RNA sequence: UGAGCCCUCGGAGGACUCCAUUUGUUUUGAUGAUGGAUUCUUACGCUCCAUCAUCGUCUCAAAUGAGUCUUCAGAGGGUUCU
Numbered sequence: 001u002g003a004g005c006c007c008u009c010g011g012a013g014g015a016c017u018c019c020a021u022u023u024g025u026u027u028u029g030a031u032g033a034u035g036g037a038u039u040c041u042u043a044c045g046c047u048c049c050a051u052c053a054u055c056g057u058c059u060c061a062a063a064u065g066a067g068u069c070u071u072c073a074g075a076g077g078g079u080u081c082u
Stems, first nucleotide, its partner, number of pairs: 002081008011072008020064005028056010
Dot-bracket structure: .((((((((.((((((((.(((((...((((((((((.........))))))))))...))))))))))))).)))))))).